[Rfam]
RNA sequence: AUUGGUGGUAGGCCACAACAGAAACACUCAUGGUACAGCCUAUCAGAUUCCAAUAAAAUCUGCAAAUUCUGCU
Numbered sequence: 001a002u003u004g005g006u007g008g009u010a011g012g013c014c015a016c017a018a019c020a021g022a023a024a025c026a027c028u029c030a031u032g033g034u035a036c037a038g039c040c041u042a043u044c045a046g047a048u049u050c051c052a053a054u055a056a057a058a059u060c061u062g063c064a065a066a067u068u069c070u071g072c073u
Stems, first nucleotide, its partner, number of pairs: 009042005017073001019071005026034001044062006
Shown here is a 73-nucleotide sequence from Alligator sinensis, a member of the family "Mammalian CPEB3 ribozyme". The organism belongs to Alligator, within Eukaryota.